[Rfam]
RNA sequence: GUUGCUUCAUAUGGUGAACUCUUUCUUAAAACUGAAGUGAGGGAUGUUCAAGUUUCUGAAGCAUAAAUGAAUAGUCAGUAUUAAACAACAUGGUGUAAUUCAACUACAUCCUACUACCUAUCUCCUGCUAUAUUA
Numbered sequence: 001g002u003u004g005c006u007u008c009a010u011a012u013g014g015u016g017a018a019c020u021c022u023u024u025c026u027u028a029a030a031a032c033u034g035a036a037g038u039g040a041g042g043g044a045u046g047u048u049c050a051a052g053u054u055u056c057u058g059a060a061g062c063a064u065a066a067a068u069g070a071a072u073a074g075u076c077a078g079u080a081u082u083a084a085a086c087a088a089c090a091u092g093g094u095g096u097a098a099u100u101c102a103a104c105u106a107c108a109u110c111c112u113a114c115u116a117c118c119u120a121u122c123u124c125c126u127g128c129u130a131u132a133u134u135a
Stems, first nucleotide, its partner, number of pairs: 003063006015050005020044005074129001076127003080123001087115001092110004
Source information: This 135-nucleotide sequence from Capsicum annuum belongs to the Rfam family "small nucleolar RNA snoR137". It scores 85 bits against the family's covariance model. On this family, see Chen and Wu, Nucleic Acids Res 2009: "Mining small RNA sequencing data: a new approach to identify small nucleolar RNAs in Arabidopsis". The family's RNA type in Rfam is H/ACA-box small nucleolar RNA.